[Rfam]
The record is a 47-nucleotide RNA, which matches "gut-2 RNA" in Rfam. It is annotated as a small RNA.
RNA sequence: CUCCUCCGGCUGAUUGGAGCCGGGGAAGGACCGUUGGGGUCAACUGC
Numbered sequence: 001c002u003c004c005u006c007c008g009g010c011u012g013a014u015u016g017g018a019g020c021c022g023g024g025g026a027a028g029g030a031c032c033g034u035u036g037g038g039g040u041c042a043a044c045u046g047c
Stems, first nucleotide, its partner, number of pairs: 004025008029041004
Dot-bracket structure: ...((((((((......))))))))...((((.....))))......
The family's consensus secondary structure is taken from published work.